RNA sequence: CUGUCUCUUGCUUCAACAGUGCUUGGACGGACAAG
Numbered sequence: 001c002u003g004u005c006u007c008u009u010g011c012u013u014c015a016a017c018a019g020u021g022c023u024u025g026g027a028c029g030g031a032c033a034a035g
Stems, first nucleotide, its partner, number of pairs: 001035002006031003010028001012027005017021001
Iron response element I: a 35-nucleotide RNA from Capra hircus. The literature on the family includes a 1987 paper in Science by Hentze et al., "Identification of the iron-responsive element for the translational regulation of human ferritin mRNA".